The family of this 128-nucleotide RNA from Clupea harengus is "Small nucleolar RNA SNORA63". By type it is an H/ACA-box small nucleolar RNA. Rfam links the family to the GO terms RNA processing and nucleolus. Rfam's curators write: E3 belongs to the H/ACA class of snoRNAs and is involved in the processing of eukaryotic pre-rRNA and has regions of complementarity to 18S rRNA. E3 is encoded in introns in the gene for protein synthesis initiation factor 4AII. The family's consensus secondary structure was predicted with PFOLD. The literature on the family includes a 1997 paper in Proc Natl Acad Sci U S A by Mishra and Eliceiri, "Three small nucleolar RNAs that are involved in ribosomal RNA precursor processing".
[Rfam]
RNA sequence: AUGCAGGAUAUCUACAUGGCAACUGUUCAGUGCUGUUUUGUCGUUCCCCCUGCAAACAUAAAUCUGUUCCCUACUAUCCCUGCCUGUCUGCACCUCUACGGCAGGCAGGGACGCUUGGGCUCAGACAC
Numbered sequence: 001a002u003g004c005a006g007g008a009u010a011u012c013u014a015c016a017u018g019g020c021a022a023c024u025g026u027u028c029a030g031u032g033c034u035g036u037u038u039u040g041u042c043g044u045u046c047c048c049c050c051u052g053c054a055a056a057c058a059u060a061a062a063u064c065u066g067u068u069c070c071c072u073a074c075u076a077u078c079c080c081u082g083c084c085u086g087u088c089u090g091c092a093c094c095u096c097u098a099c100g101g102c103a104g105g106c107a108g109g110g111a112c113g114c115u116u117g118g119g120c121u122c123a124g125a126c127a128c
Stems, first nucleotide, its partner, number of pairs: 003053005014041003018037004023032001079109004084104004